Shown here is a 72-nucleotide sequence from Oceanicola sp. 22II-s10i, a member of the family "Singlet oxygen resistance RNA X". SorX (RSs2461)like SorY is a singlet oxygen induced sRNA that counteracts oxidative stress by targeting mRNA for a transporter in Rhodobacter. It also has an impact on resistance against organic hydroperoxides. The match comes from Rfam's covariance-model search (87 bits). Its family is annotated with response to photooxidative stress in the Gene Ontology. A reference for the family is Peng et al. (2016), "Regulation of a polyamine transporter by the conserved 3' UTR-derived sRNA SorX confers resistance to singlet oxygen and organic hydroperoxides in Rhodobacter sphaeroides", RNA Biol. The family's RNA type in Rfam is small RNA.
[Rfam]
RNA sequence: AACCCGCGCGUGACCGGGUUACGUCACGCACCUCCCUGUUGGACUCGCCCGGGCCUUGGCCCGGGCUUUUUU
Numbered sequence: 001a002a003c004c005c006g007c008g009c010g011u012g013a014c015c016g017g018g019u020u021a022c023g024u025c026a027c028g029c030a031c032c033u034c035c036c037u038g039u040u041g042g043a044c045u046c047g048c049c050c051g052g053g054c055c056u057u058g059g060c061c062c063g064g065g066c067u068u069u070u071u072u
Stems, first nucleotide, its partner, number of pairs: 008029007047066008

Lineage of the source: Bacteria > Pseudomonadati > Pseudomonadota > Alphaproteobacteria > Oceanicola. The pairing is the family consensus, mapped onto this sequence.